[Rfam]
The record is a 149-nucleotide RNA from Kalanchoe fedtschenkoi, which matches "small nucleolar RNA snoR135" in Rfam.
RNA sequence: GGUGCAGGGGCUGUGUGUAUCGGCAAUGUGCAGUUUUCAUGCACUUGUUAGUCGAAAGAAAUCCCUGCAAAAUCAGAUUAGGGCAGAUGGGCAGUUGAGCUUCACUCUUAUUCCAUUGAUGCAUCUCAACAAUCAUCUUCCUCACAUCU
Dot-bracket structure: ...(((((((....((((((..................)))))).................)))))))............(((.((((((...((((((.........................))))))..)))))).))).......

The match comes from Rfam's covariance-model search (102 bits). Gene Ontology terms of the family: nucleolus and RNA processing. Rfam classes the family as an H/ACA-box small nucleolar RNA. For this family Rfam cites "Mining small RNA sequencing data: a new approach to identify small nucleolar RNAs in Arabidopsis" (Chen and Wu, Nucleic Acids Res, 2009).